Rfam assigns this 96-nucleotide RNA sequence from Noviherbaspirillum humi to the family "Burkholderia RNA 7 (anti-hemB)". Rfam links the family to the GO terms protein binding and bacterial biofilm matrix. By type it is a small RNA. The match comes from Rfam's covariance-model search (58 bits). NCBI's taxonomy places the organism under Bacteria, Pseudomonadati, Burkholderiales, Oxalobacteraceae, Noviherbaspirillum.
RNA sequence: CCUCCCGCUUCUCCUCCCUGAGCGGGGCCGUAUCGUAGCAUUAGCGAUAAGGCGUUAUUACCCUGGAGAUCUUCCCCUUUCUCCAGGGUUUUUUUU
Numbered sequence: 001c002c003u004c005c006c007g008c009u010u011c012u013c014c015u016c017c018c019u020g021a022g023c024g025g026g027g028c029c030g031u032a033u034c035g036u037a038g039c040a041u042u043a044g045c046g047a048u049a050a051g052g053c054g055u056u057a058u059u060a061c062c063c064u065g066g067a068g069a070u071c072u073u074c075c076c077c078u079u080u081c082u083c084c085a086g087g088g089u090u091u092u093u094u095u096u
Stems, first nucleotide, its partner, number of pairs: 004026006028052002031049006061088008